Shown here is a 74-nucleotide RNA from Actinomadura madurae, a member of the family "tRNA". Clan: tRNA clan.
[Rfam]
RNA sequence: UCCGGUGUCGCCCACUCCGGCAGGGCAGCGGGCUGUUAACCCGUCAGGCGCAGGUUCGAAUCCUGCCACCGGAG
Numbered sequence: 001u002c003c004g005g006u007g008u009c010g011c012c013c014a015c016u017c018c019g020g021c022a023g024g025g026c027a028g029c030g031g032g033c034u035g036u037u038a039a040c041c042c043g044u045c046a047g048g049c050g051c052a053g054g055u056u057c058g059a060a061u062c063c064u065g066c067c068a069c070c071g072g073a074g
Stems, first nucleotide, its partner, number of pairs: 001073007010026004028044005050066005